Rfam assigns this 72-nucleotide RNA sequence from Orthohepacivirus hominis to the family "Hepatitis C virus stem-loop SL2531 and SL2549AU".
The family's RNA type in Rfam is cis-regulatory element.
RNA sequence: UCUUAGCGGACGCCAGGGUUUGCGCCUGCCUGUGGAUGCUCAUCUUGCUGGGCCAAGCCGAAGCAGCACUAG
Numbered sequence: 001u002c003u004u005a006g007c008g009g010a011c012g013c014c015a016g017g018g019u020u021u022g023c024g025c026c027u028g029c030c031u032g033u034g035g036a037u038g039c040u041c042a043u044c045u046u047g048c049u050g051g052g053c054c055a056a057g058c059c060g061a062a063g064c065a066g067c068a069c070u071a072g
Base pairs, nucleotide, nucleotide: 006023007022008021009020010019011018024067025066027065028064029063031061034058037055038054

Taxonomically the source falls in Hepatitis C virus genotype 2 (Viruses, Riboviria, Orthornavirae, Flasuviricetes).
Rfam's curators put it in the seed alignment.